[Rfam]
Rfam assigns this 140-nucleotide RNA to the family "RT-14 RNA". By type it is a small RNA.
RNA sequence: CUCUAAUAUUAUUCGAGAUUAUAUAUUUUAAGGAAUAUAUACAGAGAAAUAUUAGAUAUUAAAGGGGUUUGCUCCAUCCUUAAGUGGUAAAUAAGAAUCAUGGAUGAGGUAUUUGUAGGAAACGAAGAUAUAGUAAUCUA
Numbered sequence: 001c002u003c004u005a006a007u008a009u010u011a012u013u014c015g016a017g018a019u020u021a022u023a024u025a026u027u028u029u030a031a032g033g034a035a036u037a038u039a040u041a042c043a044g045a046g047a048a049a050u051a052u053u054a055g056a057u058a059u060u061a062a063a064g065g066g067g068u069u070u071g072c073u074c075c076a077u078c079c080u081u082a083a084g085u086g087g088u089a090a091a092u093a094a095g096a097a098u099c100a101u102g103g104a105u106g107a108g109g110u111a112u113u114u115g116u117a118g119g120a121a122a123c124g125a126a127g128a129u130a131u132a133g134u135a136a137u138c139u140a
Base pairs, nucleotide, nucleotide: 003055004054005053006052007051008050009049013047014046020041021040022039023038024037025036026035027034028033078087079086101140102139103138104137105136107134110130111129112128118123

The sequence is in the family's curated seed alignment.